[Rfam]
Nucleotides: 325
Stems, first nucleotide, its partner, number of pairs: 048194005058189002061186002065181001067180001073174007083099005100155007195210002278290004282306005
Number, partner (000 for none) and nucleotide at each position: 001000c002000c003000u004000u005000g006000c007000c008000g009000a010000g011000g012000c013000u014000a015000u016000g017000g018000a019000u020000u021000c022000u023000u024000a025000g026000g027000a028000a029000g030000c031000g032000a033000u034000a035000g036000a037000a038000u039000u040000c041000u042000c043000c044000g045000c046000a047000u048194g049193g050192u051191c052190g053000u054000a055000a056000u057000c058189c059188c060000g061186u062185c063000a064000a065181a066000g067180g068000g069000g070000a071000u072000g073174c074173g075172u076171g077170u078169c079168g080000g081000a082000c083099g084098c085097g086096g087095g088000u089000u090000c091000g092000a093000u094000u095087c096086c097085c098084g099083c100155c101154g102153g103152c104151u105150c106149c107000a108000c109000c110000a111000g112000a113000a114000g115000c116000a117000c118000a119000u120000c121000g122000a123000a124000a125000c126000c127000c128000g129000a130000u131000g132000u133000c134000g135000c136000g137000u138000g139000u140000g141000u142000u143000u144000c145000u146000g147000a148000u149106g150105g151104g152103g153102c154101c155100g156000a157000c158000c159000u160000g161000g162000u163000u164000u165000c166000g167000a168079c169078g170077g171076c172075g173074c174073g175000a176000g177000g178000a179000a180067c181065u182000g183000g184000a185062g186061a187000a188059g189058g190052c191051g192050a193049c194048c195210c196209g197000a198000g199000a200000g201000g202000c203000g204000a205000c206000g207000g208000a209196c210195g211000u212000a213000a214000u215000c216000c217000g218000c219000g220000c221000a222000a223000a224000u225000c226000a227000a228000g229000c230000a231000a232000u233000c234000g235000c236000c237000a238000a239000c240000g241000a242000c243000g244000a245000g246000c247000g248000c249000u250000u251000c252000c253000u254000g255000g256000c257000c258000g259000c260000c261000g262000c263000c264000u265000a266000a267000u268000a269000c270000g271000g272000c273000a274000g275000c276000c277000c278290g279289g280288g281287u282306c283305c284304g285303g286302c287281a288280c289279c290278u291000g292000a293000g294000a295000a296000c297000a298000g299000a300000a301000c302286g303285c304284c305283g306282g307000u308000g309000u310000u311000g312000a313000u314000c315000g316000c317000c318000c319000u320000g321000c322000c323000u324000c325000a